Record summary
This 183-nucleotide RNA from Arthrobacter sp. PAMC 25486 belongs to the Rfam family "M-box riboswitch aptamer (ykoK leader)". M-box riboswitch, also know as ykoK leader is described as a metaloregulatory RNA that sense divalent metals and function as a genetic control element of genes related to divalent metal transport in bacteria.
RNA sequence: GCAGUACCUCGUUCGGUGAGGCUCCUGCGCGAAUAUAGGCCACUGGUCUGGCGAAUAUCGAGAGAUGUCGUCAGGUUAGGACAGGUUUUCCCGGAGCAAGGGUUAACCCCAAGUGGCUGCCCUCCAGCAUUGCUGGAAUGGGCUACGUCGCGUAGUGCCAAAGCUCUGACAUGGAGGACUGCG
Numbered sequence: 001g002c003a004g005u006a007c008c009u010c011g012u013u014c015g016g017u018g019a020g021g022c023u024c025c026u027g028c029g030c031g032a033a034u035a036u037a038g039g040c041c042a043c044u045g046g047u048c049u050g051g052c053g054a055a056u057a058u059c060g061a062g063a064g065a066u067g068u069c070g071u072c073a074g075g076u077u078a079g080g081a082c083a084g085g086u087u088u089u090c091c092c093g094g095a096g097c098a099a100g101g102g103u104u105a106a107c108c109c110c111a112a113g114u115g116g117c118u119g120c121c122c123u124c125c126a127g128c129a130u131u132g133c134u135g136g137a138a139u140g141g142g143c144u145a146c147g148u149c150g151c152g153u154a155g156u157g158c159c160a161a162a163g164c165u166c167u168g169a170c171a172u173g174g175a176g177g178a179c180u181g182c183g
Stems, first nucleotide, its partner, number of pairs: 007177004011170002013099001015165003020159003025155008039117005045077005056067004084108004090102003119143003
Annotation: It scores 119 bits against the family's covariance model. The family has 159 seed sequences and 1,095 matches in Rfam 15.1. The organism belongs to Arthrobacter, within Bacteria.